[Rfam]
RNA sequence: GGCGUAAAGCGCGUGUAGGCGGCUUUGCAAGUCGGGUGUGAAAGCCCUCAGCUCAACUGAGGAAGUGCGCCCGAAACUGCAGAGCUUGAGUGCCGGAGAGGGUGGCGGAAUUCCCCAAGUAGAGGUGAAAUUCGUAGAUAUGGGGAGGAACACCGGUGGCGAAGGCGGCCACCUGGACGGUAACUGACGCUGAGACGCGAAAGCGUGGGUAGCAAACAGGAUUAGAUACCCUGGUAGUCCACGCCGUAAACGAUGAGAACUAGGUGUCGUGGGAGUUGACCCCCGCGGUGCCGUAGCUAACGCAUUAAGUUCUCCGCCUGGGAAGUACGGUCGCAAGACUAAAACUCAAAGGAAU
Numbered sequence: 001g002g003c004g005u006a007a008a009g010c011g012c013g014u015g016u017a018g019g020c021g022g023c024u025u026u027g028c029a030a031g032u033c034g035g036g037u038g039u040g041a042a043a044g045c046c047c048u049c050a051g052c053u054c055a056a057c058u059g060a061g062g063a064a065g066u067g068c069g070c071c072c073g074a075a076a077c078u079g080c081a082g083a084g085c086u087u088g089a090g091u092g093c094c095g096g097a098g099a100g101g102g103u104g105g106c107g108g109a110a111u112u113c114c115c116c117a118a119g120u121a122g123a124g125g126u127g128a129a130a131u132u133c134g135u136a137g138a139u140a141u142g143g144g145g146a147g148g149a150a151c152a153c154c155g156g157u158g159g160c161g162a163a164g165g166c167g168g169c170c171a172c173c174u175g176g177a178c179g180g181u182a183a184c185u186g187a188c189g190c191u192g193a194g195a196c197g198c199g200a201a202a203g204c205g206u207g208g209g210u211a212g213c214a215a216a217c218a219g220g221a222u223u224a225g226a227u228a229c230c231c232u233g234g235u236a237g238u239c240c241a242c243g244c245c246g247u248a249a250a251c252g253a254u255g256a257g258a259a260c261u262a263g264g265u266g267u268c269g270u271g272g273g274a275g276u277u278g279a280c281c282c283c284c285g286c287g288g289u290g291c292c293g294u295a296g297c298u299a300a301c302g303c304a305u306u307a308a309g310u311u312c313u314c315c316g317c318c319u320g321g322g323a324a325g326u327a328c329g330g331u332c333g334c335a336a337g338a339c340u341a342a343a344a345c346u347c348a349a350a351g352g353a354a355u
Stems, first nucleotide, its partner, number of pairs: 001318003009315001011198004016192001018191003022085007030078002032074009046062006089185003092181004100174007107151001111147007122133003159166002203244006212238002217233004255314006263292011296303002320347003329340004
Rfam assigns this 355-nucleotide part of an RNA from Corallococcus coralloides to the family "Bacterial small subunit ribosomal RNA".
A reference for the family is Yusupov et al. (2001), "Crystal structure of the ribosome at 5.5 A resolution", Science.
It is one of the family's seed sequences.
Pairs were carried over by alignment from the consensus structure, which is taken from published work.